RNA: Bacterial large subunit ribosomal RNA, nucleotides 9 to 570
Organism: Spiroplasma taiwanense
RNA sequence: UAUAGUAAGGGCGUAUGGUGAAUGCCUUGGAAAAUGGAGCCGAUGAAGGACGCGACUACCUGCGAAAAGCGCCGGGGAGCUGGAAGUAAGCUUUGAUCCGACGAUAUCCGAAUGGGGAAACCCACUAUGAUUAAUCUCAUAGUAUCCACAACUGAAUACAUAGGUUGUGUGAAGGGAACCUAGGGAACUGAAACAUCUUAGUACCUAGAGGAAAAGAAAACGAAUGUGAUUCUGUUAGUAGCGGCGAGCGAAAGCGGAACAGGCCAAACCGGUCUACGGGCCGGGGUUGUAGGACUCUUGUUAGAGUUACAAAGUUAGUGUAUAGCAGAAGCUGUUGGGAAGCAGUGACAUAGAGGGUGAUAUCCCCGUAUGCAAAAUGCACUAACCUCGAAAGAGUAUCCUGAGUACGGCGGGGCACGUGGAACCCUGUUGGAAUCUACCCAGACCACUGGGUAAGCCUAAAUACUACCAUUUUACCGAUAGUGAACCAGUACCGUGAGGGAAAGGUGAAAAGUACCCCGUGAGGGGAGUGAAAUAGUACCUGAAACCAUAUGCUUACAAG
Numbered sequence: 001u002a003u004a005g006u007a008a009g010g011g012c013g014u015a016u017g018g019u020g021a022a023u024g025c026c027u028u029g030g031a032a033a034a035u036g037g038a039g040c041c042g043a044u045g046a047a048g049g050a051c052g053c054g055a056c057u058a059c060c061u062g063c064g065a066a067a068a069g070c071g072c073c074g075g076g077g078a079g080c081u082g083g084a085a086g087u088a089a090g091c092u093u094u095g096a097u098c099c100g101a102c103g104a105u106a107u108c109c110g111a112a113u114g115g116g117g118a119a120a121c122c123c124a125c126u127a128u129g130a131u132u133a134a135u136c137u138c139a140u141a142g143u144a145u146c147c148a149c150a151a152c153u154g155a156a157u158a159c160a161u162a163g164g165u166u167g168u169g170u171g172a173a174g175g176g177a178a179c180c181u182a183g184g185g186a187a188c189u190g191a192a193a194c195a196u197c198u199u200a201g202u203a204c205c206u207a208g209a210g211g212a213a214a215a216g217a218a219a220a221c222g223a224a225u226g227u228g229a230u231u232c233u234g235u236u237a238g239u240a241g242c243g244g245c246g247a248g249c250g251a252a253a254g255c256g257g258a259a260c261a262g263g264c265c266a267a268a269c270c271g272g273u274c275u276a277c278g279g280g281c282c283g284g285g286g287u288u289g290u291a292g293g294a295c296u297c298u299u300g301u302u303a304g305a306g307u308u309a310c311a312a313a314g315u316u317a318g319u320g321u322a323u324a325g326c327a328g329a330a331g332c333u334g335u336u337g338g339g340a341a342g343c344a345g346u347g348a349c350a351u352a353g354a355g356g357g358u359g360a361u362a363u364c365c366c367c368g369u370a371u372g373c374a375a376a377a378u379g380c381a382c383u384a385a386c387c388u389c390g391a392a393a394g395a396g397u398a399u400c401c402u403g404a405g406u407a408c409g410g411c412g413g414g415g416c417a418c419g420u421g422g423a424a425c426c427c428u429g430u431u432g433g434a435a436u437c438u439a440c441c442c443a444g445a446c447c448a449c450u451g452g453g454u455a456a457g458c459c460u461a462a463a464u465a466c467u468a469c470c471a472u473u474u475u476a477c478c479g480a481u482a483g484u485g486a487a488c489c490a491g492u493a494c495c496g497u498g499a500g501g502g503a504a505a506g507g508u509g510a511a512a513a514g515u516a517c518c519c520c521g522u523g524a525g526g527g528g529a530g531u532g533a534a535a536u537a538g539u540a541c542c543u544g545a546a547a548c549c550a551u552a553u554g555c556u557u558a559c560a561a562g
Base pairs, nucleotide, nucleotide: 009557010556011555012554013553014552015551016550017549018548024542025507026506029478030477031475032474033473034472035471036470037469038467039466040175041174048109049108050107051064052063053062070103071102073100074099075098076097079091080090081089114123115122116121124143125142126141127140128139129138130137145172146171147169148168149167150166151165152164153163179210180208181207182206183205184204190197191196220227221226230463231258232257233256234255235254241249242248261460262459263458264457269284270283271282272281273280274279291402292401293400295396296395297394298393299392312388314386315385316384317383318382319381320380321379322378323377325373326372327371331346332345333344334343335342349353355367356366357365408432409431410430411429412428413427414426415425439454440453441452442451443450494501495500517528518527519526520525